[Rfam]
RNA sequence: CGAUCUACUCGUCGGGGACUCACCGGCAGGGGUAGAUGGAUAGGCGUACUGUGGGAUAGGUCUGAGAUACGCACAAGGGUGGCGAAGUUAGCGCCCUAGACCGAACGGCUGACGAAU
Numbered sequence: 001c002g003a004u005c006u007a008c009u010c011g012u013c014g015g016g017g018a019c020u021c022a023c024c025g026g027c028a029g030g031g032g033u034a035g036a037u038g039g040a041u042a043g044g045c046g047u048a049c050u051g052u053g054g055g056a057u058a059g060g061u062c063u064g065a066g067a068u069a070c071g072c073a074c075a076a077g078g079g080u081g082g083c084g085a086a087g088u089u090a091g092c093g094c095c096c097u098a099g100a101c102c103g104a105a106c107g108g109c110u111g112a113c114g115a116a117u
Stems, first nucleotide, its partner, number of pairs: 001039001003037008026052004044072005059102004076097005087113006
This 117-nucleotide RNA sequence from Glaciimonas immobilis belongs to the Rfam family "Betaproteobacteria-1 RNA".
The source organism's lineage runs through Bacteria, Pseudomonadati, Pseudomonadota, Burkholderiales and Glaciimonas.
A search with the family's covariance model found it, with a score of 98 bits.
The family's RNA type in Rfam is small RNA.